[Rfam]
RNA: U2 spliceosomal RNA
RNA sequence: AUUGCUUCUUGGCCUUUUAACUUAGAGCAAGUGUAGUUAGUAUAGUUUUUUUUUAUCUGUUUAAUAUUUGAUAUGUCCUCUAUCAGACAAUAUACAAAAUGGAUUUUUGGAGCAGGGAGAUGAAAUAGGAGCUUGUUCCAUCCACUCCGUGCAUCGACCUGGUAUUGCAGUACCUCCAGGUAUGGUGCACUCCAC
Numbered sequence: 001a002u003u004g005c006u007u008c009u010u011g012g013c014c015u016u017u018u019a020a021c022u023u024a025g026a027g028c029a030a031g032u033g034u035a036g037u038u039a040g041u042a043u044a045g046u047u048u049u050u051u052u053u054u055a056u057c058u059g060u061u062u063a064a065u066a067u068u069u070g071a072u073a074u075g076u077c078c079u080c081u082a083u084c085a086g087a088c089a090a091u092a093u094a095c096a097a098a099a100u101g102g103a104u105u106u107u108u109g110g111a112g113c114a115g116g117g118a119g120a121u122g123a124a125a126u127a128g129g130a131g132c133u134u135g136u137u138c139c140a141u142c143c144a145c146u147c148c149g150u151g152c153a154u155c156g157a158c159c160u161g162g163u164a165u166u167g168c169a170g171u172a173c174c175u176c177c178a179g180g181u182a183u184g185g186u187g188c189a190c191u192c193c194a195c
Stems, first nucleotide, its partner, number of pairs: 007026003011022002054073004059068001075088001079087003116148004122142002128139004151188006158180005